This 95-nucleotide sequence from Neorhodopirellula pilleata belongs to the Rfam family "Bacterial small signal recognition particle RNA".
About the family: The signal recognition particle (SRP) is a universally conserved ribonucleoprotein involved in the co-translational targeting of proteins to membranes.
RNA sequence: GGUGGCGACCCUUGCGAUUGCAAGCUGUGAACCUGGUCAGGCCUUAACUGGAGCAGCCAUAAACGGUGCCGCUCUGUGUGGGGGUCGCCUCCAAU
Numbered sequence: 001g002g003u004g005g006c007g008a009c010c011c012u013u014g015c016g017a018u019u020g021c022a023a024g025c026u027g028u029g030a031a032c033c034u035g036g037u038c039a040g041g042c043c044u045u046a047a048c049u050g051g052a053g054c055a056g057c058c059a060u061a062a063a064c065g066g067u068g069c070c071g072c073u074c075u076g077u078g079u080g081g082g083g084g085u086c087g088c089c090u091c092c093a094a095u
Stems, first nucleotide, its partner, number of pairs: 004089011015076001017075001020072002024067005034059004042051002

Rfam classes the family as a non-coding RNA gene.
On this family, see Righetti et al., Proc Natl Acad Sci U S A 2016: "Temperature-responsive in vitro RNA structurome of Yersinia pseudotuberculosis".
The source organism's lineage runs through Bacteria, Pseudomonadati, Pirellulales, Pirellulaceae and Neorhodopirellula.